The family of this 78-nucleotide sequence from Eubucco bourcierii is "Mammalian CPEB3 ribozyme". NCBI's taxonomy places the organism under Eukaryota, Chordata, Archosauria, Ramphastidae, Eubucco. The base pairs follow the family's consensus structure, which is taken from published work. It scores 37 bits against the family's covariance model.
RNA sequence: UCAUGCCACAUUGAGGCCAGGGCAGGAGCAUCCCUUUUGCAGCCUCUGCCAGACUCUGAGCAUCUUGCAAAUUCUGCA
Number, nucleotide and partner (000 for none) at each position: 001u000002c000003a000004u000005g000006c000007c000008a000009c000010a000011u000012u000013g046014a045015g044016g043017c042018c000019a000020g000021g000022g077023c076024a075025g074026g073027a072028g040029c039030a038031u000032c000033c000034c000035u000036u000037u000038u030039g029040c028041a000042g017043c016044c015045u014046c013047u000048g000049c000050c067051a066052g065053a000054c000055u062056c000057u000058g000059a000060g000061c000062a055063u000064c000065u052066u051067g050068c000069a000070a000071a000072u027073u026074c025075u024076g023077c022078a000